The family of this 119-nucleotide RNA sequence from Oryctolagus cuniculus is "Small nucleolar RNA SNORA26".
Rfam's curators write: The snoRNA HBI-6 belong to the H/ACA family of snoRNAs, guiding the pseudouridylation of position U4522 if the 28S rRNA. HBI-6 is the human orthologue of mouse MBI-6 snoRNA.
Rfam 15.1 lists 1,943 matches to the family in 640 species.
Rfam's curators put it in the seed alignment.
The organism belongs to Oryctolagus, within Eukaryota.
A reference for the family is Huttenhofer et al. (2001), "RNomics: an experimental approach that identifies 201 candidates for novel, small, non-messenger RNAs in mouse", EMBO J.
The base pairs follow the family's consensus structure, which was predicted with RNAalifold.
Gene Ontology terms of the family: RNA processing and nucleolus.
Rfam classes the family as an H/ACA-box small nucleolar RNA.

RNA sequence: GUGCCCUUUUAAAACUGACAGUGCUUUAAGAGGCUAACACAGAAGGGGAAAGUAAGUCUCCCUAAAACCCAGAGAAGAGAUUGUCAUCUCCUCUUUGGAUCCUGUCUGGAGAUACAGCU
Numbered sequence: 001g002u003g004c005c006c007u008u009u010u011a012a013a014a015c016u017g018a019c020a021g022u023g024c025u026u027u028a029a030g031a032g033g034c035u036a037a038c039a040c041a042g043a044a045g046g047g048g049a050a051a052g053u054a055a056g057u058c059u060c061c062c063u064a065a066a067a068c069c070c071a072g073a074g075a076a077g078a079g080a081u082u083g084u085c086a087u088c089u090c091c092u093c094u095u096u097g098g099a100u101c102c103u104g105u106c107u108g109g110a111g112a113u114a115c116a117g118c119u
Stems, first nucleotide, its partner, number of pairs: 002049001004047007016036002019030001056113001058111004069098007077090003082086001